[Rfam]
RNA sequence: AAGCAACACUAUAGCAGAUCGUCAGAACUCUCUGAUGCAAUAUGAGCUCGCUGUCGCAAGAAAGUCCCACCUAUUCUGGUGCGCUCUCCUCUGAGACAAGCCGUUAUAUCGACUUCACAUU
Dot-bracket structure: ........((.((.((((............)))).)).)......)...............(((((.....(((..((((....((((....))))...))))..)))..)))))......
The family of this 121-nucleotide sequence from Myotis brandtii is "Small nucleolar RNA SNORA28". The source organism's lineage runs through Eukaryota, Metazoa, Vertebrata, Vespertilionidae and Myotis. The family has 26 seed sequences and 922 matches in Rfam 15.1. ACA28 is a member of the H/ACA class of snoRNA that guide the sites of modification of uridines to pseudouridines. The family is grouped with related families in Rfam's "SNORA28 clan". The family's RNA type in Rfam is H/ACA-box small nucleolar RNA.